[Rfam]
RNA sequence: UCCGAAAAAAGCAAACCUAUCGAAAGAUAGGGACGCAAAGCCACGGGUCUAAGGUAAUCUAAGAUCGCCGGGCUACCGAAC
Numbered sequence: 001u002c003c004g005a006a007a008a009a010a011g012c013a014a015a016c017c018u019a020u021c022g023a024a025a026g027a028u029a030g031g032g033a034c035g036c037a038a039a040g041c042c043a044c045g046g047g048u049c050u051a052a053g054g055u056a057a058u059c060u061a062a063g064a065u066c067g068c069c070g071g072g073c074u075a076c077c078g079a080a081c
Stems, first nucleotide, its partner, number of pairs: 003078002011036002016031006034067001039074004044070003047065003
This 81-nucleotide sequence from Desulfosporosinus sp. Sb-LF belongs to the Rfam family "c-di-GMP-I-GGC riboswitch aptamer".